[Rfam]
RNA sequence: AUUGGGUGGAUGAUGUGUCUGUAGUCUGCGUUAUCUUUCUGUAACUUUGUUGAAGGAAUUGAAGAUGACACUGAUUACUGAGAUCUGGG
Numbered sequence: 001a002u003u004g005g006g007u008g009g010a011u012g013a014u015g016u017g018u019c020u021g022u023a024g025u026c027u028g029c030g031u032u033a034u035c036u037u038u039c040u041g042u043a044a045c046u047u048u049g050u051u052g053a054a055g056g057a058a059u060u061g062a063a064g065a066u067g068a069c070a071c072u073g074a075u076u077a078c079u080g081a082g083a084u085c086u087g088g089g
Stems, first nucleotide, its partner, number of pairs: 002088006
Dot-bracket structure: .((((((...........................................................................)))))).
RNA: Small nucleolar RNA snoR27